[Rfam]
RNA sequence: CCCUCCUACAAAGGCGUGUCUGUGAUCUCCUGUCCUUGGACACGUAAGAAUUGGAGGCAUAGAGAUGUGGACUUGGAGAAGUCUGGAGCCAGCUUGCUCCCUGCAGGCUCAAGAACACCCUUUCCCACACAG
Numbered sequence: 001c002c003c004u005c006c007u008a009c010a011a012a013g014g015c016g017u018g019u020c021u022g023u024g025a026u027c028u029c030c031u032g033u034c035c036u037u038g039g040a041c042a043c044g045u046a047a048g049a050a051u052u053g054g055a056g057g058c059a060u061a062g063a064g065a066u067g068u069g070g071a072c073u074u075g076g077a078g079a080a081g082u083c084u085g086g087a088g089c090c091a092g093c094u095u096g097c098u099c100c101c102u103g104c105a106g107g108c109u110c111a112a113g114a115a116c117a118c119c120c121u122u123u124c125c126c127a128c129a130c131a132g
Base pairs, nucleotide, nucleotide: 002057003056004055005054006053015044016043017042018041019040020039021038024030069125070124071123091109092108093107094106095105096104097103